[Rfam]
RNA: Small nucleolar RNA SNORA51
Organism: Phyllostomus discolor
RNA sequence: GGCCUCUCAGUGCUUAGCACAGGCUGUGUUCUUAUGCUGACACUACAGAAAGAGGAGAUGAAGUAAACCCACUCGUAAUACAACUCAGCCCAGACCCUUUGUCUGGUCUGUAUUCUGAAUGGGCGGCAUGG
Numbered sequence: 001g002g003c004c005u006c007u008c009a010g011u012g013c014u015u016a017g018c019a020c021a022g023g024c025u026g027u028g029u030u031c032u033u034a035u036g037c038u039g040a041c042a043c044u045a046c047a048g049a050a051a052g053a054g055g056a057g058a059u060g061a062a063g064u065a066a067a068c069c070c071a072c073u074c075g076u077a078a079u080a081c082a083a084c085u086c087a088g089c090c091c092a093g094a095c096c097c098u099u100u101g102u103c104u105g106g107u108c109u110g111u112a113u114u115c116u117g118a119a120u121g122g123g124c125g126g127c128a129u130g131g
Stems, first nucleotide, its partner, number of pairs: 002059001004057004022041001026037004072123005086110003090106006